[Rfam]
RNA: Rhizobiales sRNA Atu_C7
Organism: Rhizobium sp. PDO1-076
RNA sequence: UGAAAUAUACCUGUCAUCAGCAAACGUUGAUUAAGCGUUUUCCGAUUUGCCAGUUCUCCCGGCGCGUCCUGGUGCCACAGGUGUUUCCUCCCUCGCCUGCUUGGCGAUGCGCCCCCUUGCCCCGCUCCUCGCUCCGCGAGAGCGGGGCUUUUU
Numbered sequence: 001u002g003a004a005a006u007a008u009a010c011c012u013g014u015c016a017u018c019a020g021c022a023a024a025c026g027u028u029g030a031u032u033a034a035g036c037g038u039u040u041u042c043c044g045a046u047u048u049g050c051c052a053g054u055u056c057u058c059c060c061g062g063c064g065c066g067u068c069c070u071g072g073u074g075c076c077a078c079a080g081g082u083g084u085u086u087c088c089u090c091c092c093u094c095g096c097c098u099g100c101u102u103g104g105c106g107a108u109g110c111g112c113c114c115c116c117u118u119g120c121c122c123c124g125c126u127c128c129u130c131g132c133u134c135c136g137c138g139a140g141a142g143c144g145g146g147g148c149u150u151u152u153u
Stems, first nucleotide, its partner, number of pairs: 061113008078099006119148009129139002